[Rfam]
About this RNA:
The record is a 47-nucleotide RNA, which matches "chrB-b RNA" in Rfam. It is one of the family's seed sequences. The family's RNA type in Rfam is cis-regulatory element. The family's consensus secondary structure is taken from published work.
RNA sequence: UGGGGAUGCAGACUCCCCAUUAGACGGAGCGUCCGUCCAAGCUCUGC
Numbered sequence: 001u002g003g004g005g006a007u008g009c010a011g012a013c014u015c016c017c018c019a020u021u022a023g024a025c026g027g028a029g030c031g032u033c034c035g036u037c038c039a040a041g042c043u044c045u046g047c
Base pairs, nucleotide, nucleotide: 001019002018003017004016005015006014008047009046010045011044012043023037024036025035026034027033